[Rfam]
RNA sequence: CAUCGUUCUCAGGGCGGGGUGAAAUUCCCCACCGGCGGUAUACGGGCACGACCCGUAAGCCCGCGAGCGGCGUCUUAGUGCAGAUGCAUCCACAUCCCCAAAAGUGGGAACCGGUUUUGGGAUCAGAUGUGGAGCCAGCAAAGACGUGUCAGCAGAUCUGGUGAGAGGCCAGAGCCGACGGUGAAAGUCCGGAUGGAAGAGAACGUGC
Numbered sequence: 001c002a003u004c005g006u007u008c009u010c011a012g013g014g015c016g017g018g019g020u021g022a023a024a025u026u027c028c029c030c031a032c033c034g035g036c037g038g039u040a041u042a043c044g045g046g047c048a049c050g051a052c053c054c055g056u057a058a059g060c061c062c063g064c065g066a067g068c069g070g071c072g073u074c075u076u077a078g079u080g081c082a083g084a085u086g087c088a089u090c091c092a093c094a095u096c097c098c099c100a101a102a103a104g105u106g107g108g109a110a111c112c113g114g115u116u117u118u119g120g121g122a123u124c125a126g127a128u129g130u131g132g133a134g135c136c137a138g139c140a141a142a143g144a145c146g147u148g149u150c151a152g153c154a155g156a157u158c159u160g161g162u163g164a165g166a167g168g169c170c171a172g173a174g175c176c177g178a179c180g181g182u183g184a185a186a187g188u189c190c191g192g193a194u195g196g197a198a199g200a201g202a203a204c205g206u207g208c
Base pairs, nucleotide, nucleotide: 004205005204006203007202008201009200010199017029018028019027031188032187033177034176035064036063037062038061059175060174067153068152157173158172159171160170161169179191180190181189
Rfam assigns this 208-nucleotide sequence from Shimia marina to the family "FMN riboswitch aptamer (RFN element)". A search with the family's covariance model found it, with a score of 107 bits. Taxonomically the source falls in Shimia (Bacteria, Pseudomonadati, Alphaproteobacteria, Rhodobacterales). The family's consensus secondary structure is taken from published work. The literature on the family includes a 2009 paper in Nature by Serganov et al., "Coenzyme recognition and gene regulation by a flavin mononucleotide riboswitch".